[Rfam]
RNA sequence: CGACCCUUCUUAAGCCGAGGGUCACCUAGCCAACUGACGUUGUUAGUGAACUUGAUUUUGUUCACAUGUAUAUAAGCCAAUCGCACUCUUUGCGGUUGGCUAUUUUUUU
Numbered sequence: 001c002g003a004c005c006c007u008u009c010u011u012a013a014g015c016c017g018a019g020g021g022u023c024a025c026c027u028a029g030c031c032a033a034c035u036g037a038c039g040u041u042g043u044u045a046g047u048g049a050a051c052u053u054g055a056u057u058u059u060g061u062u063c064a065c066a067u068g069u070a071u072a073u074a075a076g077c078c079a080a081u082c083g084c085a086c087u088c089u090u091u092g093c094g095g096u097u098g099g100c101u102a103u104u105u106u107u108u109u
Stems, first nucleotide, its partner, number of pairs: 002023005040075004046065006077099008
Dot-bracket structure: .(((((............)))))................((((..((((((........))))))......)))).((((((((.......))))))))..........
A member of the RNA family "Qrr RNA" from Vibrio antiquarius, 109 nucleotides long. The literature on the family includes a 2004 paper in Cell by Lenz et al., "The Small RNA Chaperone Hfq and Multiple Small RNAs Control Quorum Sensing in Vibrio harveyi and Vibrio cholerae". NCBI's taxonomy places the organism under Bacteria, Pseudomonadati, Pseudomonadota, Gammaproteobacteria, Vibrio. Gene Ontology term of the family: quorum sensing. This family represents a set of small RNAs (the Qrr RNAs) that are thought to be involved in the regulation of quorum sensing in Vibrio species. It is believed that these RNAs, guided by a protein, Hfq, can mediate the destabilisation of the quorum-sensing master regulators LuxR/HapR mRNAs. The family has 30 seed sequences and 148 matches in Rfam 15.1. Pairs were carried over by alignment from the consensus structure, which is taken from published work.